[Rfam]
RNA: Vault RNA
RNA sequence: GGGUCAGCUAUAGCCCAGCAGUUACUUUGGUGUUUCACAGGCCUGUCAUGCCUUGCUCCAUGAAGCGUUCGAUCCUGUGAGCACCUCUGGCCCAUUU
Numbered sequence: 001g002g003g004u005c006a007g008c009u010a011u012a013g014c015c016c017a018g019c020a021g022u023u024a025c026u027u028u029g030g031u032g033u034u035u036c037a038c039a040g041g042c043c044u045g046u047c048a049u050g051c052c053u054u055g056c057u058c059c060a061u062g063a064a065g066c067g068u069u070c071g072a073u074c075c076u077g078u079g080a081g082c083a084c085c086u087c088u089g090g091c092c093c094a095u096u097u
Stems, first nucleotide, its partner, number of pairs: 002092006013082002016079001018078004027072004